RNA sequence: AUUCUGUUUCAGGGCGGGGUGGAAGUCCCCACUGGCGGUGAGCGGCUUAGGGCCGCGCAGUCCGCGACCCGCGCCAUGCGCGCGGCUGACUCCGUGAGAUUCGGAGACCAACGGUUACAGUCCGGAUGGAAGAGGCAGUAU
Number, nucleotide and partner (000 for none) at each position: 001a000002u000003u000004c138005u137006g136007u135008u134009u133010c132011a000012g000013g000014g000015c000016g000017g029018g028019g027020u000021g000022g000023a000024a000025g000026u000027c019028c018029c017030c000031a121032c120033u110034g109035g065036c064037g063038g062039u000040g000041a000042g000043c000044g000045g000046c000047u000048u000049a000050g000051g000052g000053c000054c000055g000056c000057g000058c000059a000060g108061u107062c038063c037064g036065c035066g000067a000068c000069c085070c084071g000072c000073g000074c000075c000076a000077u000078g000079c000080g000081c000082g000083c000084g070085g069086c000087u000088g000089a000090c106091u105092c104093c103094g102095u000096g000097a000098g000099a000100u000101u000102c094103g093104g092105a091106g090107a061108c060109c034110a033111a000112c124113g123114g122115u000116u000117a000118c000119a000120g032121u031122c114123c113124g112125g000126a000127u000128g000129g000130a000131a000132g010133a009134g008135g007136c006137a005138g004139u000140a000141u000

A member of the RNA family "FMN riboswitch aptamer (RFN element)" from Parvibacter caecicola, 141 nucleotides long. Its family is annotated with FMN binding in the Gene Ontology. The match comes from Rfam's covariance-model search (100 bits).